[Rfam]
RNA sequence: UUGCCCACUCGAGGUUGUUAAUGUCUUGAGUGGCCAUUAUGGAGGGGUAGAUCAUGGUCCUCUCUGAAAACCUGGGUCAGGGGUCUCACCCCUGCCUCUGGACCUGUCGGGAGGAACAAGA
Numbered sequence: 001u002u003g004c005c006c007a008c009u010c011g012a013g014g015u016u017g018u019u020a021a022u023g024u025c026u027u028g029a030g031u032g033g034c035c036a037u038u039a040u041g042g043a044g045g046g047g048u049a050g051a052u053c054a055u056g057g058u059c060c061u062c063u064c065u066g067a068a069a070a071c072c073u074g075g076g077u078c079a080g081g082g083g084u085c086u087c088a089c090c091c092c093u094g095c096c097u098c099u100g101g102a103c104c105u106g107u108c109g110g111g112a113g114g115a116a117c118a119a120g121a
Base pairs, nucleotide, nucleotide: 002049003048004047005046006045009042010041014038016036017035019030058115060113061112062111063110064109071100074097075096076095077094080091081090
The record is a 121-nucleotide sequence from Lates calcarifer, which matches "Small nucleolar RNA SNORA26" in Rfam. Rfam describes the family as follows. The snoRNA HBI-6 belong to the H/ACA family of snoRNAs, guiding the pseudouridylation of position U4522 if the 28S rRNA. HBI-6 is the human orthologue of mouse MBI-6 snoRNA. A search with the family's covariance model found it, with a score of 46 bits. Rfam 15.1 lists 1,943 matches to the family in 640 species. The family's consensus secondary structure was predicted with RNAalifold. It is annotated as an H/ACA-box small nucleolar RNA. The family is grouped with related families in Rfam's "SNORA27 clan". Rfam links the family to the GO terms RNA processing and nucleolus.